The record is a 79-nucleotide RNA sequence from Danio rerio, which matches "Small nucleolar RNA SNORD72" in Rfam. The family has 16 seed sequences and 726 matches in Rfam 15.1. The source organism's lineage runs through Eukaryota, Metazoa, Teleostomi, Euteleostomi and Danio. On this family, see Huttenhofer et al., EMBO J 2001: "RNomics: an experimental approach that identifies 201 candidates for novel, small, non-messenger RNAs in mouse". The match comes from Rfam's covariance-model search (64 bits). From the family's description: snoRNA HBII-240 belongs to the CD family of snoRNAs. It is the human orthologue of the mouse MBII-240 and is predicted to guide 2'O-ribose methylation of the large 28S rRNA at residue U4590. By type it is a C/D-box small nucleolar RNA.
[Rfam]
RNA sequence: AGCUUACCAGUGAUGUGCAAAAAUAAAUGUCUGAACAAAUGAGUGUCCAGUGAUAACUGAUUUUGAACUGAGGUAAGCC
Number, nucleotide and partner (000 for none) at each position: 001a000002g078003c077004u076005u075006a074007c073008c072009a000010g000011u000012g000013a000014u000015g000016u000017g000018c000019a000020a000021a000022a000023a000024u000025a000026a000027a000028u000029g000030u000031c000032u000033g000034a000035a000036c000037a000038a000039a000040u000041g000042a000043g000044u000045g000046u000047c000048c000049a000050g000051u000052g000053a000054u000055a000056a000057c000058u000059g000060a000061u000062u000063u000064u000065g000066a000067a000068c000069u000070g000071a000072g008073g007074u006075a005076a004077g003078c002079c000